[Rfam]
RNA sequence: AGUAGGCGAUGAAGCGAAAGGUUGCUCAAUAGGGAAAUUUUCGUGGAGAAGUGUCUAGAUCUAAGAAUCGGGCGACAA
Numbered sequence: 001a002g003u004a005g006g007c008g009a010u011g012a013a014g015c016g017a018a019a020g021g022u023u024g025c026u027c028a029a030u031a032g033g034g035a036a037a038u039u040u041u042c043g044u045g046g047a048g049a050a051g052u053g054u055c056u057a058g059a060u061c062u063a064a065g066a067a068u069c070g071g072g073c074g075a076c077a078a
Base pairs, nucleotide, nucleotide: 014044015043016042018041019040020039021038025033026032052077053076054075055074058073060071061070
A member of the RNA family "S10-Clostridia ribosomal protein leader" from Anaerovirgula multivorans, 78 nucleotides long.